RNA: TPP riboswitch aptamer (THI element)
Organism: Mesorhizobium sp. YM1C-6-2
RNA sequence: CCGCAUAACCAGGGGUGCUCUCCUUUCGGAGGGCUGAGAUGCGCUUCUACGCGCGAACCCUUCAAAGCUGAUCUGGGUAAUGCCAGCGGAGCGAGGGACCAUGUUCAUAGG
Numbered sequence: 001c002c003g004c005a006u007a008a009c010c011a012g013g014g015g016u017g018c019u020c021u022c023c024u025u026u027c028g029g030a031g032g033g034c035u036g037a038g039a040u041g042c043g044c045u046u047c048u049a050c051g052c053g054c055g056a057a058c059c060c061u062u063c064a065a066a067g068c069u070g071a072u073c074u075g076g077g078u079a080a081u082g083c084c085a086g087c088g089g090a091g092c093g094a095g096g097g098a099c100c101a102u103g104u105u106c107a108u109a110g111g
Stems, first nucleotide, its partner, number of pairs: 009096002011061004016055001017034005041054004067092003073086004